Shown here is a 92-nucleotide RNA sequence from Microthlaspi erraticum, a member of the family "Small nucleolar RNA snoR17". For this family Rfam cites "Multiple snoRNA gene clusters from Arabidopsis" (Brown et al., RNA, 2001). The source organism's lineage runs through Eukaryota, Streptophytina, Euphyllophyta, Gunneridae and Microthlaspi. Rfam 15.1 lists 32 matches to the family in 14 species.
[Rfam]
RNA sequence: UAUAGUGAUGAAUCAAAUCACAAUUGUCACUACCUCUGAGGCACAUUAUUUUUUUUCAUUCUUUUCUUUUUAAACCCCUUAAAAGCCUUGUG
Numbered sequence: 001u002a003u004a005g006u007g008a009u010g011a012a013u014c015a016a017a018u019c020a021c022a023a024u025u026g027u028c029a030c031u032a033c034c035u036c037u038g039a040g041g042c043a044c045a046u047u048a049u050u051u052u053u054u055u056u057c058a059u060u061c062u063u064u065u066c067u068u069u070u071u072a073a074a075c076c077c078c079u080u081a082a083a084a085g086c087c088u089u090g091u092g
Stems, first nucleotide, its partner, number of pairs: 004031006069083004